Shown here is an 89-nucleotide sequence from Scyliorhinus torazame, a member of the family "Vault RNA". It scores 51 bits against the family's covariance model. Rfam classes the family as a non-coding RNA gene.
RNA sequence: GCGUCAGCUUUAGCUCACUGGUUGCUUCACAGCAUCAACUUAAUUGUAAGUUUGGGCUUGUUUCACCAUGGGCGCUGCCUGGCGUUUUU
Numbered sequence: 001g002c003g004u005c006a007g008c009u010u011u012a013g014c015u016c017a018c019u020g021g022u023u024g025c026u027u028c029a030c031a032g033c034a035u036c037a038a039c040u041u042a043a044u045u046g047u048a049a050g051u052u053u054g055g056g057c058u059u060g061u062u063u064c065a066c067c068a069u070g071g072g073c074g075c076u077g078c079c080u081g082g083c084g085u086u087u088u089u
Stems, first nucleotide, its partner, number of pairs: 002084006013073004019068003028060002
Dot-bracket structure: .((((((.....((((..(((......((.............................)).....))).)))).....)))))).....
Record summary: This family of RNAs are found as part of the enigmatic vault ribonucleoprotein complex. The complex consists of a major vault protein (MVP), two minor vault proteins (VPARP and TEP1), and several small untranslated RNA molecules. It has been suggested that the vault complex is involved in drug resistance.